RNA sequence: AGAUGCCAGGGGCAAAAGGUCUGAAACCACAUGAGCUUGCUCAUAAGUGGGCGAAAGACCUUGCGCCCCGCCCCGAUAUGAGCAUAAAAGCAGGAUAAUAAUCCCGCGAUAUGUGAAUAUUGGGGCGGAUUGUUGGAGUGCACAGCACGGAACAAUCCGCAGGCAUCA
Numbered sequence: 001a002g003a004u005g006c007c008a009g010g011g012g013c014a015a016a017a018g019g020u021c022u023g024a025a026a027c028c029a030c031a032u033g034a035g036c037u038u039g040c041u042c043a044u045a046a047g048u049g050g051g052c053g054a055a056a057g058a059c060c061u062u063g064c065g066c067c068c069c070g071c072c073c074c075g076a077u078a079u080g081a082g083c084a085u086a087a088a089a090g091c092a093g094g095a096u097a098a099u100a101a102u103c104c105c106g107c108g109a110u111a112u113g114u115g116a117a118u119a120u121u122g123g124g125g126c127g128g129a130u131u132g133u134u135g136g137a138g139u140g141c142a143c144a145g146c147a148c149g150g151a152a153c154a155a156u157c158c159g160c161a162g163g164c165a166u167c168a
Stems, first nucleotide, its partner, number of pairs: 002167006010068004016062007027050004031044005072124008082114004090107002093104004127158007138148004
RNA: Clostridiales-1 RNA